Rfam assigns this 248-nucleotide RNA from Todus mexicanus to the family "Small nucleolar RNA SNORD17". The snoRNA HBI-43 belongs to the C/D family of snoRNAs, guiding 2'O-ribose methylation at position U3797 of the 28S rRNA. Pseudouridylation in position U3797 is predicted to be guided by the H/ACA snoRNA ACA48. Lineage of the source: Eukaryota > Metazoa > Sauropsida > Neognathae > Todus. A search with the family's covariance model found it, with a score of 115 bits. The literature on the family includes a 2001 paper in EMBO J by Huttenhofer et al., "RNomics: an experimental approach that identifies 201 candidates for novel, small, non-messenger RNAs in mouse".
[Rfam]
RNA sequence: GUGAGGUGAUGACACAGUUUAUCCAUUCUCUGAGUGCAGUGGUGCUGCCCUCCUGCAGCACCCUGAUUCCUGUUCUAGGGUCUGGGUGCUGUGCAGCCUCCAGACACCCUCCAGUCUCCCAGUGUCUUACUGGGGGCUGCUGUGAUGUGUGGGUGGCUGCCUGCAGGGGCAAAGCAGGGCCAACAGGGUUGGAUCCCCUCUUUGGAGGGGCUCUGUCCUCAUUGAGAUGAGGGAUGAUGUCUGAUCAC
Numbered sequence: 001g002u003g004a005g006g007u008g009a010u011g012a013c014a015c016a017g018u019u020u021a022u023c024c025a026u027u028c029u030c031u032g033a034g035u036g037c038a039g040u041g042g043u044g045c046u047g048c049c050c051u052c053c054u055g056c057a058g059c060a061c062c063c064u065g066a067u068u069c070c071u072g073u074u075c076u077a078g079g080g081u082c083u084g085g086g087u088g089c090u091g092u093g094c095a096g097c098c099u100c101c102a103g104a105c106a107c108c109c110u111c112c113a114g115u116c117u118c119c120c121a122g123u124g125u126c127u128u129a130c131u132g133g134g135g136g137c138u139g140c141u142g143u144g145a146u147g148u149g150u151g152g153g154u155g156g157c158u159g160c161c162u163g164c165a166g167g168g169g170c171a172a173a174g175c176a177g178g179g180c181c182a183a184c185a186g187g188g189u190u191g192g193a194u195c196c197c198c199u200c201u202u203u204g205g206a207g208g209g210g211c212u213c214u215g216u217c218c219u220c221a222u223u224g225a226g227a228u229g230a231g232g233g234a235u236g237a238u239g240u241c242u243g244a245u246c247a248c
Stems, first nucleotide, its partner, number of pairs: 010247003017240002020237001023233002026231003030226002034222002039184002042181001043179001045177004051168007059088005065082001068080004093160006106148002112139005118134007186220002188217001190215004195210005